The record is a 100-nucleotide RNA from Luteimonas sp., which matches "TPP riboswitch aptamer (THI element)" in Rfam. The match comes from Rfam's covariance-model search (62 bits). Taxonomically the source falls in Luteimonas (Bacteria, Pseudomonadati, Gammaproteobacteria, Lysobacteraceae).

RNA sequence: AUGUGGAAGCGGGGGUACCGCCGGUGAUCCGGCGGUUGAGACAGUCCCUUCGAACCUGAUCCGGCUGACACCGGCGUAGGGAAGCUUCGCAGGAGGCCGG
Numbered sequence: 001a002u003g004u005g006g007a008a009g010c011g012g013g014g015g016u017a018c019c020g021c022c023g024g025u026g027a028u029c030c031g032g033c034g035g036u037u038g039a040g041a042c043a044g045u046c047c048c049u050u051c052g053a054a055c056c057u058g059a060u061c062c063g064g065c066u067g068a069c070a071c072c073g074g075c076g077u078a079g080g081g082a083a084g085c086u087u088c089g090c091a092g093g094a095g096g097c098c099g100g
Base pairs, nucleotide, nucleotide: 006088007087008086009085010084011049012048013047014046016043017036018035019034020033021032022031023030055080056079057078058077061074062073063072064071